The family of this 83-nucleotide RNA from Myotis myotis is "mir-574 microRNA precursor family". Clan: mir-574 microRNA precursor clan. A reference for the family is Nielsen et al. (2010), "MicroRNA identity and abundance in porcine skeletal muscles determined by deep sequencing", Anim Genet. Pairs were carried over by alignment from the consensus structure, which was predicted with RNAalifold.
[Rfam]
RNA sequence: AGGCCUGAAGAGAGAAGCAGGGUCUGAUCUGCAGCCUCCGUGGCAGCUGUUAAUCAGCCCUUGCUUGCCUCUCUCUCUCUCUC
Numbered sequence: 001a002g003g004c005c006u007g008a009a010g011a012g013a014g015a016a017g018c019a020g021g022g023u024c025u026g027a028u029c030u031g032c033a034g035c036c037u038c039c040g041u042g043g044c045a046g047c048u049g050u051u052a053a054u055c056a057g058c059c060c061u062u063g064c065u066u067g068c069c070u071c072u073c074u075c076u077c078u079c080u081c082u083c
Stems, first nucleotide, its partner, number of pairs: 009074006015066006022059001024057005032049004